Record summary: A member of the RNA family "c-di-AMP riboswitch aptamer (ydaO/yuaA leader)" from Stackebrandtia nassauensis, 153 nucleotides long. The base pairs follow the family's consensus structure. It scores 91 bits against the family's covariance model.
RNA sequence: GCGCGAGUACCGCCGAGUCGCCGCAAGGCGAGCCGGGGACCCAAUUGGGUAUUCCUGAACAGGGCCCCGGGGUGAAUCCGUGCUCACGCACGGUAGGGCGAUCUUCCCGCCCGAACCCGUCAGCUAACCCGGUAGGCGGUCAUCGGAAGAAAG
Numbered sequence: 001g002c003g004c005g006a007g008u009a010c011c012g013c014c015g016a017g018u019c020g021c022c023g024c025a026a027g028g029c030g031a032g033c034c035g036g037g038g039a040c041c042c043a044a045u046u047g048g049g050u051a052u053u054c055c056u057g058a059a060c061a062g063g064g065c066c067c068c069g070g071g072g073u074g075a076a077u078c079c080g081u082g083c084u085c086a087c088g089c090a091c092g093g094u095a096g097g098g099c100g101a102u103c104u105u106c107c108c109g110c111c112c113g114a115a116c117c118c119g120u121c122a123g124c125u126a127a128c129c130c131g132g133u134a135g136g137c138g139g140u141c142a143u144c145g146g147a148a149g150a151a152a153g
Stems, first nucleotide, its partner, number of pairs: 011138004018031003032133006042069001070118003078093004096112004
Lineage of the source: Bacteria > Actinomycetota > Glycomycetaceae > Stackebrandtia > Stackebrandtia nassauensis.